[Rfam]
Background:
Plant small nucleolar RNA R71: a 103-nucleotide RNA sequence from Nicotiana attenuata. It scores 45 bits against the family's covariance model. It is annotated as a C/D-box small nucleolar RNA.
RNA sequence: ACAUCAUGGUGUGGACAUACAACCAGCAUCCCCUUAAAGCGUUCCCAUGUUUCAUGCAGUGUCUCCAUUGUUCUCUGUUUAAAACUCAAAAUUUCAUCAAUUU
Numbered sequence: 001a002c003a004u005c006a007u008g009g010u011g012u013g014g015a016c017a018u019a020c021a022a023c024c025a026g027c028a029u030c031c032c033c034u035u036a037a038a039g040c041g042u043u044c045c046c047a048u049g050u051u052u053c054a055u056g057c058a059g060u061g062u063c064u065c066c067a068u069u070g071u072u073c074u075c076u077g078u079u080u081a082a083a084a085c086u087c088a089a090a091a092u093u094u095c096a097u098c099a100a101u102u103u
Stems, first nucleotide, its partner, number of pairs: 001103001003101002006097001056073001058071001

The literature on the family includes a 2003 paper in Trends Plant Sci by Brown et al., "Plant snoRNAs: functional evolution and new modes of gene expression". The source organism's lineage runs through Eukaryota, Streptophytina, eudicotyledons, lamiids and Nicotiana. Its family is annotated with RNA processing and nucleolus in the Gene Ontology. The base pairs follow the family's consensus structure, which was predicted with PFOLD.